Shown here is a 186-nucleotide RNA from Apilactobacillus ozensis, a member of the family "Lysine riboswitch aptamer". Taxonomically the source falls in Apilactobacillus ozensis (Bacteria, Lactobacillales, Lactobacillaceae, Apilactobacillus). It scores 105 bits against the family's covariance model.
RNA sequence: UUUAAUCGAAGAGGUCGCAGUCGACAAAAGUAAAAUAACCGAGUUAUCACAUAUUGGCUAUGAGGUUAUUUGAAAGGGGAGAUUGCCGAAGAAAGAAUUUUAUAUGUGAUUUUUCUUUCUGGGGCUUAGCUUAAUAGGCUAUGAACUGUCAUAAGUAUGAAAGCUUAUGGGGCGCUAUCGACAAAA
Dot-bracket structure: .....((((((.....((((((..(.......((((((((.......................))))))))......)..))))))...((((((((...(.......)...))))))))((..(.(((((.....))))).)..)).(((((((........)))))))....)).)))).....
Numbered sequence: 001u002u003u004a005a006u007c008g009a010a011g012a013g014g015u016c017g018c019a020g021u022c023g024a025c026a027a028a029a030g031u032a033a034a035a036u037a038a039c040c041g042a043g044u045u046a047u048c049a050c051a052u053a054u055u056g057g058c059u060a061u062g063a064g065g066u067u068a069u070u071u072g073a074a075a076g077g078g079g080a081g082a083u084u085g086c087c088g089a090a091g092a093a094a095g096a097a098u099u100u101u102a103u104a105u106g107u108g109a110u111u112u113u114u115c116u117u118u119c120u121g122g123g124g125c126u127u128a129g130c131u132u133a134a135u136a137g138g139c140u141a142u143g144a145a146c147u148g149u150c151a152u153a154a155g156u157a158u159g160a161a162a163g164c165u166u167a168u169g170g171g172g173c174g175c176u177a178u179c180g181a182c183a184a185a186a
Stems, first nucleotide, its partner, number of pairs: 006181004010176002017086006025078001033071008090120008101109001121147002125143001127141005149170007